[Rfam]
RNA sequence: AAACACGUUAAGAACAUUCCCCAUAUAUCCCGAGGAAUCGGCCUCGGAGUUUCUACCCCGGCACCGGAAUGCCGGGACUAUGAGGGAAAGCGGAUUACAG
Numbered sequence: 001a002a003a004c005a006c007g008u009u010a011a012g013a014a015c016a017u018u019c020c021c022c023a024u025a026u027a028u029c030c031c032g033a034g035g036a037a038u039c040g041g042c043c044u045c046g047g048a049g050u051u052u053c054u055a056c057c058c059c060g061g062c063a064c065c066g067g068a069a070u071g072c073c074g075g076g077a078c079u080a081u082g083a084g085g086g087a088a089a090g091c092g093g094a095u096u097a098c099a100g
Stems, first nucleotide, its partner, number of pairs: 018086003022082004030047006057076007
Annotation
Purine riboswitch aptamer: a 100-nucleotide RNA from Bhargavaea cecembensis. Lineage of the source: Bacteria > Bacillota > Bacilli > Bhargavaea > Bhargavaea cecembensis. The match comes from Rfam's covariance-model search (68 bits). Rfam links the family to the GO term purine nucleobase biosynthetic process.